[Rfam]
RNA sequence: CCAGGUGUUCCGUCACCUGCACCUACCCCAGGCCAUGCGUAGCCGGAAACAGCUAGGUGUGAAGCGCUUGGCACAAUGUACCUCUAGUGAAAACAUAAGGCGCCUCUGCAAAGAGAACUGAAGACUGCAAGCAUCAUGCGGCGAGAGGG
Numbered sequence: 001c002c003a004g005g006u007g008u009u010c011c012g013u014c015a016c017c018u019g020c021a022c023c024u025a026c027c028c029c030a031g032g033c034c035a036u037g038c039g040u041a042g043c044c045g046g047a048a049a050c051a052g053c054u055a056g057g058u059g060u061g062a063a064g065c066g067c068u069u070g071g072c073a074c075a076a077u078g079u080a081c082c083u084c085u086a087g088u089g090a091a092a093a094c095a096u097a098a099g100g101c102g103c104c105u106c107u108g109c110a111a112a113g114a115g116a117a118c119u120g121a122a123g124a125c126u127g128c129a130a131g132c133a134u135c136a137u138g139c140g141g142c143g144a145g146a147g148g149g
Base pairs, nucleotide, nucleotide: 002019003018004017005016006015007014029070030069031068032067033066034061035060036059037058038057040055041054042053043052045050083098087094088093100119106113107112125141126140127139128138129137
Rfam assigns this 149-nucleotide sequence from Arsenophonus endosymbiont of Aleurodicus floccissimus to the family "Group II catalytic intron D1-D4-7". Rfam's curators write: Group II introns are found in rRNA, tRNA and mRNA of organelles in fungi, plants and protists, and also in mRNA in bacteria. Its family is annotated with Group II intron splicing in the Gene Ontology. On this family, see Chu et al., EMBO J 2001: "Control of branch-site choice by a group II intron".